Actinobacteria sRNA Ms_IGR-7: a 117-nucleotide RNA from Arthrobacter terrae. The family's RNA type in Rfam is small RNA. Lineage of the source: Bacteria > Bacillati > Actinomycetota > Actinomycetes > Arthrobacter. The family has 14 seed sequences and 463 matches in Rfam 15.1.
RNA sequence: GCGAGAUGCCCUUCAUUUUCGGGAAAUUGUUCUGUGGUAAGUCCAAUUUUCCCCGAAAAGACGGGCAUUUCGUGUUUAAACCGCCGGGCAACCCCCAAGUUUCAUCGGUGGAUCAAG
Numbered sequence: 001g002c003g004a005g006a007u008g009c010c011c012u013u014c015a016u017u018u019u020c021g022g023g024a025a026a027u028u029g030u031u032c033u034g035u036g037g038u039a040a041g042u043c044c045a046a047u048u049u050u051c052c053c054c055g056a057a058a059a060g061a062c063g064g065g066c067a068u069u070u071c072g073u074g075u076u077u078a079a080a081c082c083g084c085c086g087g088g089c090a091a092c093c094c095c096c097a098a099g100u101u102u103c104a105u106c107g108g109u110g111g112a113u114c115a116a117g
Stems, first nucleotide, its partner, number of pairs: 002072010012061002016058002019055001021053003024049004029044001032041002099113001101112004